[Rfam]
RNA sequence: CUUUCAAGAUGGUGAUGGAGGUGAAAAAUAGUUCAUAAAGUGGUGAUAUUAUUAUCACCUUCAUCUCAGUAAUGUAUAAGAGAUUGGAGAUAAAUGACGACUUAAGAUAU
Numbered sequence: 001c002u003u004u005c006a007a008g009a010u011g012g013u014g015a016u017g018g019a020g021g022u023g024a025a026a027a028a029u030a031g032u033u034c035a036u037a038a039a040g041u042g043g044u045g046a047u048a049u050u051a052u053u054a055u056c057a058c059c060u061u062c063a064u065c066u067c068a069g070u071a072a073u074g075u076a077u078a079a080g081a082g083a084u085u086g087g088a089g090a091u092a093a094a095u096g097a098c099g100a101c102u103u104a105a106g107a108u109a110u
Stems, first nucleotide, its partner, number of pairs: 046103001049100002057091001059089004064083004
RNA: Small nucleolar RNA snoR97